[Rfam]
RNA sequence: GAUUUAUACAGAAGCGGCGAGAGAAUAGGCUCGUUGACCCGCUGGCAACCCUCCCUUCACGUGGAACGGUGCCAAUUCCUACCUCGGCCCACCGGCCGGGGGUAUAUAAACC
Dot-bracket structure: (.((((((....(((((...(((..[[[[)))......)))))((((.((.((.........))...))))))...(]]]]((((((........))))))..))))))).)
The family of this 112-nucleotide sequence from Hymenobacter polaris is "SAM riboswitch aptamer (S box leader)". A search with the family's covariance model found it, with a score of 73 bits. Taxonomically the source falls in Hymenobacter (Bacteria, Bacteroidota, Cytophagia, Cytophagales).